[Rfam]
RNA: MIR2912 microRNA precursor family
RNA sequence: UCUAGAACUCGAGAUAUGGGCUGAACACCGAACAAUACCUAGGCUGCAUGACAAAUUCAGACUUUUCUUUUGUUGCUAAGAAUUGAACUUGAAAAUGGUAGCUUUGAAUCUUGGAAUCUUCAUGAACAUUUUAGGCCUGUGUCUUAGCUUUUCAUC
Numbered sequence: 001u002c003u004a005g006a007a008c009u010c011g012a013g014a015u016a017u018g019g020g021c022u023g024a025a026c027a028c029c030g031a032a033c034a035a036u037a038c039c040u041a042g043g044c045u046g047c048a049u050g051a052c053a054a055a056u057u058c059a060g061a062c063u064u065u066u067c068u069u070u071u072g073u074u075g076c077u078a079a080g081a082a083u084u085g086a087a088c089u090u091g092a093a094a095a096u097g098g099u100a101g102c103u104u105u106g107a108a109u110c111u112u113g114g115a116a117u118c119u120u121c122a123u124g125a126a127c128a129u130u131u132u133a134g135g136c137c138u139g140u141g142u143c144u145u146a147g148c149u150u151u152u153c154a155u156c
Stems, first nucleotide, its partner, number of pairs: 003154001005152003008147002011145010021134005027129001035123002041119003045115001048112001050110002054105002058101001060099001062098002068092002072088003